[Rfam]
RNA sequence: AUAAUAAGUUAUAUAUAAAACAAGUUAACUUUGUUCUCUGAGAAGUUCCUUACCGAGGAACUUAUUAAGUUCC
Numbered sequence: 001a002u003a004a005u006a007a008g009u010u011a012u013a014u015a016u017a018a019a020a021c022a023a024g025u026u027a028a029c030u031u032u033g034u035u036c037u038c039u040g041a042g043a044a045g046u047u048c049c050u051u052a053c054c055g056a057g058g059a060a061c062u063u064a065u066u067a068a069g070u071u072c073c
Base pairs, nucleotide, nucleotide: 002067003066004065005064006063007062008061019035020034021033022031023030024029046060047059048058049057050056051055
The family of this 73-nucleotide sequence is "Aggregatibacter sRNA 20". The literature on the family includes a 2017 paper in DNA Res by Oogai et al., "Small RNA repertoires and their intraspecies variation in Aggregatibacter actinomycetemcomitans". From the family's description: Validated by RT-PCR and Northern blot. The family's RNA type in Rfam is small RNA.